[Rfam]
RNA sequence: UAAUUCCUGCUGUGUGCGUAAGUGUAAAUUUUUAUUGACCGAACACCUUUUAAGAGGAAAUCCAACUCUUUUUGUGGAAUGAUACUUAGGCAUUGCCUAAGAACAGGAAGCAGAAAGGCGAUUUCCACCUGUUUGACGCGGGUUCAAUGAUUUGCACUUACGGCAUUGGCGGGUAUUAU
Numbered sequence: 001u002a003a004u005u006c007c008u009g010c011u012g013u014g015u016g017c018g019u020a021a022g023u024g025u026a027a028a029u030u031u032u033u034a035u036u037g038a039c040c041g042a043a044c045a046c047c048u049u050u051u052a053a054g055a056g057g058a059a060a061u062c063c064a065a066c067u068c069u070u071u072u073u074g075u076g077g078a079a080u081g082a083u084a085c086u087u088a089g090g091c092a093u094u095g096c097c098u099a100a101g102a103a104c105a106g107g108a109a110g111c112a113g114a115a116a117g118g119c120g121a122u123u124u125c126c127a128c129c130u131g132u133u134u135g136a137c138g139c140g141g142g143u144u145c146a147a148u149g150a151u152u153u154g155c156a157c158u159u160a161c162g163g164c165a166u167u168g169g170c171g172g173g174u175a176u177u178a179u
Stems, first nucleotide, its partner, number of pairs: 002177003006173006012166004017162003032150007039142002056126003060122003069116007080105002085101005
A member of the RNA family "6S / SsrS RNA" from Clostridium sp. cel8, 179 nucleotides long. The base pairs follow the family's consensus structure, which is taken from published work. A reference for the family is Elkina et al. (2017), "6S RNA in Rhodobacter sphaeroides: 6S RNA and pRNA transcript levels peak in late exponential phase and gene deletion causes a high salt stress phenotype", RNA Biol. It is annotated as a non-coding RNA gene. NCBI's taxonomy places the organism under Bacteria, Clostridia, Eubacteriales, Clostridiaceae, Clostridium. From the family's description: E. coli 6S RNA was the first non coding RNA to be sequenced, but its function was unknown until recently. It consists of 184 nucleotides that fold into an extended hairpin structure with a large single-stranded internal bulge. The match comes from Rfam's covariance-model search (86 bits).